This 133-nucleotide sequence from Erythrobasidium hasegawianum belongs to the Rfam family "U4 spliceosomal RNA". The source organism's lineage runs through Eukaryota, Fungi, Pucciniomycotina, Erythrobasidiales and Erythrobasidium. The base pairs follow the family's consensus structure, which is taken from published work. On this family, see Zwieb, Nucleic Acids Res 1997: "The uRNA database". Rfam describes the family as follows. U4 small nuclear RNA (U4 snRNA) is a component of the major U2-dependent spliceosome.
[Rfam]
RNA sequence: AUCUUUGUGCUCGGGCACGCGAUGGCGACGUUGAAGGAAACUGAGUCCCAUCUAAUUGCUGGUUGCAAACUAAAUUCCACACUCUUCACUGCACUCUUCGGAGUCUUUGGGAAUUUCUGCCCGCCUAACGGCG
Numbered sequence: 001a002u003c004u005u006u007g008u009g010c011u012c013g014g015g016c017a018c019g020c021g022a023u024g025g026c027g028a029c030g031u032u033g034a035a036g037g038a039a040a041c042u043g044a045g046u047c048c049c050a051u052c053u054a055a056u057u058g059c060u061g062g063u064u065g066c067a068a069a070c071u072a073a074a075u076u077c078c079a080c081a082c083u084c085u086u087c088a089c090u091g092c093a094c095u096c097u098u099c100g101g102a103g104u105c106u107u108u109g110g111g112a113a114u115u116u117c118u119g120c121c122c123g124c125c126u127a128a129c130g131g132c133g
Stems, first nucleotide, its partner, number of pairs: 021052005027047003035042002085111003091106001093104004122133004